[Rfam]
RNA sequence: CAAUGCCAGACCGAGUAAGCGAGAGCCGAAAGCAGGGCGAGAAGAGGAAGGAAGGCGCGACCGUCGGCCUCAGCGCCGUAAAUAUGCACCCCGCGCGGGGAGCCGGACGCUUCUUGCAUGGCCGGGCGCUCCGGCGCUCAGCCCGGUUUCAUGGCCUCCCCGCAAGCGGCUGUUCGAGCGCCAUUGCUAGCCGUGCGGGGUGCCUUCCAUGAACUCAGACGAU
Numbered sequence: 001c002a003a004u005g006c007c008a009g010a011c012c013g014a015g016u017a018a019g020c021g022a023g024a025g026c027c028g029a030a031a032g033c034a035g036g037g038c039g040a041g042a043a044g045a046g047g048a049a050g051g052a053a054g055g056c057g058c059g060a061c062c063g064u065c066g067g068c069c070u071c072a073g074c075g076c077c078g079u080a081a082a083u084a085u086g087c088a089c090c091c092c093g094c095g096c097g098g099g100g101a102g103c104c105g106g107a108c109g110c111u112u113c114u115u116g117c118a119u120g121g122c123c124g125g126g127c128g129c130u131c132c133g134g135c136g137c138u139c140a141g142c143c144c145g146g147u148u149u150c151a152u153g154g155c156c157u158c159c160c161c162g163c164a165a166g167c168g169g170c171u172g173u174u175c176g177a178g179c180g181c182c183a184u185u186g187c188u189a190g191c192c193g194u195g196c197g198g199g200g201u202g203c204c205u206u207c208c209a210u211g212a213a214c215u216c217a218g219a220c221g222a223u
Base pairs, nucleotide, nucleotide: 004039005038006037007036019026020025065078066077067076068075086203087202088201089200090199091198092197093196096162097161098160099159100157102155103154104153109117110116120148121147122146123145124144125143126142166194167193168192169191170190174183
Dot-bracket structure: ...((((...........((....)).........)))).........................((((......)))).......((((((((..(((((.(((....((.....))..(((((((...............)))))))....))).).))))...(((((...(........)......))))).))))))))....................